RNA sequence: ACAGUUCCAACAGUUCUUUCCACACUCACAAAGAAGCGUUGAAAGACUAUUCGGGCUGGGA
Number, nucleotide and partner (000 for none) at each position: 001a000002c058003a057004g056005u000006u000007c054008c053009a000010a051011c000012a048013g047014u000015u000016c045017u044018u043019u042020c041021c000022a039023c038024a000025c036026u035027c000028a000029c000030a000031a000032a000033g000034a000035a026036g025037c000038g023039u022040u000041g020042a019043a018044a017045g016046a000047c013048u012049a000050u000051u010052c000053g008054g007055g000056c004057u003058g002059g000060g000061a000

Shown here is a 61-nucleotide RNA from Caenorhabditis remanei, a member of the family "mir-2229 microRNA precursor family". Its family is annotated with RISC complex and miRNA-mediated post-transcriptional gene silencing in the Gene Ontology.